[Rfam]
The family of this 75-nucleotide sequence from Haemonchus placei is "mir-5928 microRNA precursor family". Gene Ontology terms of the family: miRNA-mediated post-transcriptional gene silencing and RISC complex.
RNA sequence: AGCACAAACUCGAAGUAGAGUAGUUUAGUAGGGUCAGAUGAUCCUUCUAAUCUAUUCUACUUCGAAUUCGGGCCU
Numbered sequence: 001a002g003c004a005c006a007a008a009c010u011c012g013a014a015g016u017a018g019a020g021u022a023g024u025u026u027a028g029u030a031g032g033g034u035c036a037g038a039u040g041a042u043c044c045u046u047c048u049a050a051u052c053u054a055u056u057c058u059a060c061u062u063c064g065a066a067u068u069c070g071g072g073c074c075u
Base pairs, nucleotide, nucleotide: 002073003072005070007068008067011064012063013062014061015060016059017058018057019056020055021054022053023052025050026049027048028047030045032043033042034041035040